A member of the RNA family "Pseudomonas sRNA CrcZ" from Pseudomonas sp. BAY1663, 393 nucleotides long. Gene Ontology term of the family: carbon catabolite repression of transcription. The family's consensus secondary structure was predicted with WAR. A search with the family's covariance model found it, with a score of 299 bits.
RNA sequence: ACAACAACAAUAACAAGCAGCCCCACAAUAAGAACAAGACGUAACGACUCCAGCAGAACAACGACAAGAAGGCGGAGGCGCAGCUAACUGAUUCUUUUGGAGAGGACGUGCAAAGGGGUUCGCCCCAAGACCAGGCCGAGAACAAUAAAAACUGCAUCGAGCAGGGCCCGUACUGGUUGGAUCGAAAGAUCACCGCAACGUCAGCGACCAAAGAAAUCCGUUUGCUCUUGGCUCCCGGUGUAGGAGCGCUCCCGACGGCGGUAGCUGAAGGGAACAGGCGAACAACAAGAACAGCACCGCCUGGAUACCAAUAACAACAAAAGCACGCGACAUCAUUCAGAGGGGAGCUUCGGCUCCCCUCAGUGCUUUCAGCGCUUGACCCAGGCAGCCGCA
Numbered sequence: 001a002c003a004a005c006a007a008c009a010a011u012a013a014c015a016a017g018c019a020g021c022c023c024c025a026c027a028a029u030a031a032g033a034a035c036a037a038g039a040c041g042u043a044a045c046g047a048c049u050c051c052a053g054c055a056g057a058a059c060a061a062c063g064a065c066a067a068g069a070a071g072g073c074g075g076a077g078g079c080g081c082a083g084c085u086a087a088c089u090g091a092u093u094c095u096u097u098u099g100g101a102g103a104g105g106a107c108g109u110g111c112a113a114a115g116g117g118g119u120u121c122g123c124c125c126c127a128a129g130a131c132c133a134g135g136c137c138g139a140g141a142a143c144a145a146u147a148a149a150a151a152c153u154g155c156a157u158c159g160a161g162c163a164g165g166g167c168c169c170g171u172a173c174u175g176g177u178u179g180g181a182u183c184g185a186a187a188g189a190u191c192a193c194c195g196c197a198a199c200g201u202c203a204g205c206g207a208c209c210a211a212a213g214a215a216a217u218c219c220g221u222u223u224g225c226u227c228u229u230g231g232c233u234c235c236c237g238g239u240g241u242a243g244g245a246g247c248g249c250u251c252c253c254g255a256c257g258g259c260g261g262u263a264g265c266u267g268a269a270g271g272g273a274a275c276a277g278g279c280g281a282a283c284a285a286c287a288a289g290a291a292c293a294g295c296a297c298c299g300c301c302u303g304g305a306u307a308c309c310a311a312u313a314a315c316a317a318c319a320a321a322a323g324c325a326c327g328c329g330a331c332a333u334c335a336u337u338c339a340g341a342g343g344g345g346a347g348c349u350u351c352g353g354c355u356c357c358c359c360u361c362a363g364u365g366c367u368u369u370c371a372g373c374g375c376u377u378g379a380c381c382c383a384g385g386c387a388g389c390c391g392c393a
Stems, first nucleotide, its partner, number of pairs: 045080002048077004095213005109206003129178006152164004231247005270375001272373001276302004323366004340361009